[Rfam]
RNA: Small nucleolar RNA snoR14
Organism: Papaver somniferum
Nucleotides: 095
Stems, first nucleotide, its partner, number of pairs: 001095004
Number, partner (000 for none) and nucleotide at each position: 001095g002094c003093g004092a005000c006000a007000u008000g009000a010000c011000g012000a013000u014000a015000a016000u017000a018000u019000u020000c021000a022000u023000g024000g025000u026000c027000u028000g029000u030000c031000g032000c033000u034000u035000u036000a037000u038000g039000u040000g041000a042000u043000g044000u045000u046000a047000c048000c049000a050000c051000u052000g053000a054000a055000u056000u057000c058000u059000g060000u061000g062000a063000u064000g065000u066000u067000a068000c069000c070000c071000u072000u073000g074000a075000a076000u077000c078000u079000c080000g081000a082000c083000a084000g085000g086000u087000u088000c089000u090000g091000a092004u093003c094002g095001c